[Rfam]
The family of this 115-nucleotide sequence from Gordonia iterans is "TPP riboswitch aptamer (THI element)". From the family's description: Vitamin B(1) in its active form thiamin pyrophosphate (TPP) is an essential coenzyme that is synthesised by coupling of pyrimidine and thiazole moieties in bacteria.
RNA sequence: AAUACGACACACGGGUGCCCGGAGGAUCGCCGGGCUGAGAUCGCGGAGCCGCCGCCGCCGACCGUCGAACCUGAUCCGGGUCAUGCCGGCGAAGGAAGGUGUGACGAAGCGGUGG
Numbered sequence: 001a002a003u004a005c006g007a008c009a010c011a012c013g014g015g016u017g018c019c020c021g022g023a024g025g026a027u028c029g030c031c032g033g034g035c036u037g038a039g040a041u042c043g044c045g046g047a048g049c050c051g052c053c054g055c056c057g058c059c060g061a062c063c064g065u066c067g068a069a070c071c072u073g074a075u076c077c078g079g080g081u082c083a084u085g086c087c088g089g090c091g092a093a094g095g096a097a098g099g100u101g102u103g104a105c106g107a108a109g110c111g112g113u114g115g
Stems, first nucleotide, its partner, number of pairs: 007102004011065004017035005043058004070095003076089004
Dot-bracket structure: ......((((((((..(((((.........))))).......((((........))))...))))....(((...((((......))))...)))...)))).............